[Rfam]
RNA sequence: GACCUGAUGGGGGGCUAUGAGGCGCGCGUUUACGCGCUGGUCACCAAGACCGCGCUGAGCCAAUGCUGAGACCGACCCGUCGGCAA
Numbered sequence: 001g002a003c004c005u006g007a008u009g010g011g012g013g014g015c016u017a018u019g020a021g022g023c024g025c026g027c028g029u030u031u032a033c034g035c036g037c038u039g040g041u042c043a044c045c046a047a048g049a050c051c052g053c054g055c056u057g058a059g060c061c062a063a064u065g066c067u068g069a070g071a072c073c074g075a076c077c078c079g080u081c082g083g084c085a086a
Stems, first nucleotide, its partner, number of pairs: 004083008013061003022055005029048001039073002041069003045065001
This 86-nucleotide RNA belongs to the Rfam family "c-di-GMP-II-GAG riboswitch aptamer". Rfam's curators put it in the seed alignment. The family's consensus secondary structure is taken from published work. Clan: c-di-GMP_II riboswitch clan. A reference for the family is Weinberg et al. (2017), "Bioinformatic analysis of riboswitch structures uncovers variant classes with altered ligand specificity", Proc Natl Acad Sci U S A.